[Rfam]
RNA sequence: AUUCCUACUGUUAUUGCUCGCAGACAUUUUUUAUAAAAAAGUUCAUAUAAUGACGAGCAGUAA
Numbered sequence: 001a002u003u004c005c006u007a008c009u010g011u012u013a014u015u016g017c018u019c020g021c022a023g024a025c026a027u028u029u030u031u032u033a034u035a036a037a038a039a040a041g042u043u044c045a046u047a048u049a050a051u052g053a054c055g056a057g058c059a060g061u062a063a
Base pairs, nucleotide, nucleotide: 011063012062013061014060015059016058017057018056019055020054